A member of the RNA family "mir-46/mir-47/mir-281 microRNA precursor family" from Caenorhabditis elegans, 93 nucleotides long. For this family Rfam cites "Computational identification of Drosophila microRNA genes" (Lai et al., Genome Biol, 2003). Lineage of the source: Eukaryota > Eumetazoa > Chromadorea > Peloderinae > Caenorhabditis.

RNA sequence: CUGAGGUGAAGCUGAAGAGAGCCGUCUAUUGACAGUUCAAGACCACGAGUCGUUGUGUGCUGUCAUGGAGUCGCUCUCUUCAGAUGAUCCGGU
Numbered sequence: 001c002u003g004a005g006g007u008g009a010a011g012c013u014g015a016a017g018a019g020a021g022c023c024g025u026c027u028a029u030u031g032a033c034a035g036u037u038c039a040a041g042a043c044c045a046c047g048a049g050u051c052g053u054u055g056u057g058u059g060c061u062g063u064c065a066u067g068g069a070g071u072c073g074c075u076c077u078c079u080u081c082a083g084a085u086g087a088u089c090c091g092g093u
Stems, first nucleotide, its partner, number of pairs: 014081005020075003025069004031064003035060002
Rfam's curators put it in the seed alignment.